Small nucleolar RNA SNORA49: a 138-nucleotide sequence from Cairina moschata. Rfam classes the family as an H/ACA-box small nucleolar RNA. The base pairs follow the family's consensus structure, which was predicted with RNAalifold. It scores 118 bits against the family's covariance model. About the family: The snoRNA ACA49 has no identified RNA target. NB genomic sequence 1-nt different from published. Rfam links the family to the GO terms RNA processing and nucleolus.

[Rfam]
RNA sequence: CUUCCUCAGCCUUACUCCAGGGGCUUUUGUUUCUGUAGAGUGCCCUGGCAUUGCCUGAGGAUAAACUCAAAGUGUGCUCGUUUCCCUCCCCAGUAAGAUUUUCAGUAUCCUUUGGGGCCUACCGUUUGAGCAAACAUU
Numbered sequence: 001c002u003u004c005c006u007c008a009g010c011c012u013u014a015c016u017c018c019a020g021g022g023g024c025u026u027u028u029g030u031u032u033c034u035g036u037a038g039a040g041u042g043c044c045c046u047g048g049c050a051u052u053g054c055c056u057g058a059g060g061a062u063a064a065a066c067u068c069a070a071a072g073u074g075u076g077c078u079c080g081u082u083u084c085c086c087u088c089c090c091c092a093g094u095a096a097g098a099u100u101u102u103c104a105g106u107a108u109c110c111u112u113u114g115g116g117g118c119c120u121a122c123c124g125u126u127u128g129a130g131c132a133a134a135c136a137u138u
Stems, first nucleotide, its partner, number of pairs: 003061007011053001017048006023041005075132003079128002088117006095111001097109002